Shown here is a 63-nucleotide RNA sequence from Erysipelothrix inopinata, a member of the family "S. pyogenes antisense RNA 392987".
NCBI's taxonomy places the organism under Bacteria, Bacillati, Bacillota, Erysipelotrichales, Erysipelothrix.
It scores 48 bits against the family's covariance model.

RNA sequence: AUGGCGAUAGCUCACUUUCUAAUAGUUUGUAGUAAAACCAUUAUAAGCGAGUUAUCGCUUUUU
Dot-bracket structure: ..(((((((((((..(...((((..(((......)))..))))...).)))))))))))....